[Rfam]
Rfam assigns this 120-nucleotide sequence from Brucella anthropi to the family "Alphaproteobacterial ar14". Its family is annotated with biological process involved in symbiotic interaction in the Gene Ontology.
RNA sequence: AAACGUCCGGUUCACUCCUCCUCCCAAGAACCGGACCCAAAGCGCGAUACUCCUCCUCCCAAUCGCGCUUACAGAUUAAGCCCACAACGUUCUCCUCCUCCCGAGCGUUGUGGGCUUUUC
Number, nucleotide and partner (000 for none) at each position: 001a000002a000003a000004c000005g000006u000007c034008c033009g032010g031011u030012u029013c028014a000015c000016u000017c000018c000019u000020c000021c000022u000023c000024c000025c000026a000027a000028g013029a012030a011031c010032c009033g008034g007035a000036c000037c000038c000039a000040a070041a069042g068043c067044g066045c065046g064047a063048u062049a000050c000051u000052c000053c000054u000055c000056c000057u000058c000059c000060c000061a000062a048063u047064c046065g045066c044067g043068c042069u041070u040071a000072c000073a000074g000075a000076u000077u000078a000079a000080g115081c114082c113083c112084a111085c110086a109087a108088c107089g106090u105091u104092c103093u000094c000095c000096u000097c000098c000099u000100c000101c000102c000103g092104a091105g090106c089107g088108u087109u086110g085111u084112g083113g082114g081115c080116u000117u000118u000119u000120c000

Rfam describes the family as follows. Smr14C2 was renamed NfeR1 (Nodule Formation Efficiency RNA) highly expressed in salt stress and during the symbiotic interaction on legume roots. It is annotated as a small RNA. NCBI's taxonomy places the organism under Bacteria, Pseudomonadati, Pseudomonadota, Brucella, Brucella anthropi.